[Rfam]
RNA sequence: UGAACAUUUCUUGCUCAAAUGAGUAUUCCAACCAUAUAGUUGCAGUUCGCAUGUAUGCACGUAUAUCCCCUUAAUCAGGUUGAGAUGCUCAUUUGAGUAAGCAAUGUUAA
Numbered sequence: 001u002g003a004a005c006a007u008u009u010c011u012u013g014c015u016c017a018a019a020u021g022a023g024u025a026u027u028c029c030a031a032c033c034a035u036a037u038a039g040u041u042g043c044a045g046u047u048c049g050c051a052u053g054u055a056u057g058c059a060c061g062u063a064u065a066u067c068c069c070c071u072u073a074a075u076c077a078g079g080u081u082g083a084g085a086u087g088c089u090c091a092u093u094u095g096a097g098u099a100a101g102c103a104a105u106g107u108u109a110a
Stems, first nucleotide, its partner, number of pairs: 004107005010101018029082002
The record is a 110-nucleotide RNA from Arachis hypogaea, which matches "MIR828 microRNA precursor family" in Rfam. The family has 16 seed sequences and 204 matches in Rfam 15.1. The base pairs follow the family's consensus structure, which was predicted with RNAalifold.